The record is a 135-nucleotide sequence from Otolemur garnettii, which matches "Small nucleolar RNA SNORA70" in Rfam.
[Rfam]
RNA sequence: CUGCAGCUAACUAAACCGACCACGUUCCUUUCCUCAUGGGGGCCUGGUCUGCAGUGGCUGCAAACAGCAGCCUCCUCAGUAGUGUAUGCAGCUUGUUGCUUGUAUGGAUUGCUCUAAGGCAGUGGUUCUUAACCU
Numbered sequence: 001c002u003g004c005a006g007c008u009a010a011c012u013a014a015a016c017c018g019a020c021c022a023c024g025u026u027c028c029u030u031u032c033c034u035c036a037u038g039g040g041g042g043c044c045u046g047g048u049c050u051g052c053a054g055u056g057g058c059u060g061c062a063a064a065c066a067g068c069a070g071c072c073u074c075c076u077c078a079g080u081a082g083u084g085u086a087u088g089c090a091g092c093u094u095g096u097u098g099c100u101u102g103u104a105u106g107g108a109u110u111g112c113u114c115u116a117a118g119g120c121a122g123u124g125g126u127u128c129u130u131a132a133c134c135u
Base pairs, nucleotide, nucleotide: 002053003052004051005050019048020047021046022045025042026041027040028039078123080121089111090110091109093107094106
A reference for the family is Charette and Gray (2000), "Pseudouridine in RNA: what, where, how, and why", IUBMB Life. The source organism's lineage runs through Eukaryota, Bilateria, Mammalia, Boreoeutheria and Otolemur. It is annotated as an H/ACA-box small nucleolar RNA.